[Rfam]
RNA: MIR390 microRNA precursor family
Organism: Musa balbisiana
RNA sequence: UGGAAGAAUCCGUAAAGCUCAGGAGGGAUAGCGCCAUGGGUAAGUAGGAACUUCUGUUCUGUUUGUCUAAAGGCGCUAUCUAUCCUGAGUUUCAUGGGUUCUUCCU
Numbered sequence: 001u002g003g004a005a006g007a008a009u010c011c012g013u014a015a016a017g018c019u020c021a022g023g024a025g026g027g028a029u030a031g032c033g034c035c036a037u038g039g040g041u042a043a044g045u046a047g048g049a050a051c052u053u054c055u056g057u058u059c060u061g062u063u064u065g066u067c068u069a070a071a072g073g074c075g076c077u078a079u080c081u082a083u084c085c086u087g088a089g090u091u092u093c094a095u096g097g098g099u100u101c102u103u104c105c106u
Stems, first nucleotide, its partner, number of pairs: 010097001016091009026081010